Shown here is a 102-nucleotide RNA sequence from Acrobeloides nanus, a member of the family "SL2 RNA".
Gene Ontology term of the family: mRNA trans splicing, via spliceosome.
The family's RNA type in Rfam is non-coding RNA gene.
The family is grouped with related families in Rfam's "SL clan".
The family has 30 seed sequences and 598 matches in Rfam 15.1.
The family's consensus secondary structure is taken from published work.
This family represents SL2 RNA. SL2 RNA is involved in trans splicing in lower eukaryotes. Trans-splicing is a form of RNA processing. The acquisition of a spliced leader from a SL RNA is a intra-molecular reaction which precisely joins exons derived from separately transcribed RNAs. Approximately 25% of C. elegans genes are organised into polycistronic transcription units and the presence of SL2 on an mRNA is an indication the the gene is in an operon.

RNA sequence: GGUUUUUACCCAGUAUCACAAGGUACUAGGAUGUUCUGACCGUUCUUCGACUGUGUUAGAAAAAUUUUUUGAACGCACUCCUGGGGUAUCCGGGAGUGCUAA
Numbered sequence: 001g002g003u004u005u006u007u008a009c010c011c012a013g014u015a016u017c018a019c020a021a022g023g024u025a026c027u028a029g030g031a032u033g034u035u036c037u038g039a040c041c042g043u044u045c046u047u048c049g050a051c052u053g054u055g056u057u058a059g060a061a062a063a064a065u066u067u068u069u070u071g072a073a074c075g076c077a078c079u080c081c082u083g084g085g086g087u088a089u090c091c092g093g094g095a096g097u098g099c100u101a102a
Base pairs, nucleotide, nucleotide: 008034009030010029013026014025015024016023037058038057039056040055041053042052044050045049077100079098081096082095085091086090
For this family Rfam cites "trans splicing of polycistronic Caenorhabditis elegans pre-mRNAs: analysis of the SL2 RNA" (Evans and Blumenthal, Mol Cell Biol, 2000).